[Rfam]
RNA sequence: GAGCAACUUAGGAUUUUAGGCUCCCCGGCGUGUCUCGAACCAUGCCGGGCCAAACCCAUAGGGCUGGCGGUCCCUGUGCGGUCGAAAUUCAUCCGCCGGAG
Numbered sequence: 001g002a003g004c005a006a007c008u009u010a011g012g013a014u015u016u017u018a019g020g021c022u023c024c025c026c027g028g029c030g031u032g033u034c035u036c037g038a039a040c041c042a043u044g045c046c047g048g049g050c051c052a053a054a055c056c057c058a059u060a061g062g063g064c065u066g067g068c069g070g071u072c073c074c075u076g077u078g079c080g081g082u083c084g085a086a087a088u089u090c091a092u093c094c095g096c097c098g099g100a101g
Stems, first nucleotide, its partner, number of pairs: 001023004011090006024049009054082003057078007
RNA: PreQ1-III (pre queuosine) riboswitch aptamer
Organism: Faecalibacterium prausnitzii